A member of the RNA family "Cyano-1 RNA" from Oculatella sp. LEGE 06141, 77 nucleotides long.

RNA sequence: GGAAAUGUGAGGAGUAAGAUUCAAAUUAAAAAGCCCCUGGAGUCGAAACAUGGACAGACGCCCAGGGGUUUUUUAAU
Numbered sequence: 001g002g003a004a005a006u007g008u009g010a011g012g013a014g015u016a017a018g019a020u021u022c023a024a025a026u027u028a029a030a031a032a033g034c035c036c037c038u039g040g041a042g043u044c045g046a047a048a049c050a051u052g053g054a055c056a057g058a059c060g061c062c063c064a065g066g067g068g069u070u071u072u073u074u075a076a077u
Base pairs, nucleotide, nucleotide: 030072031071032070033069034068037065038064039063040062042059043058044057

NCBI's taxonomy places the organism under Bacteria, Cyanophyceae, Oculatellales, Oculatellaceae, Oculatella.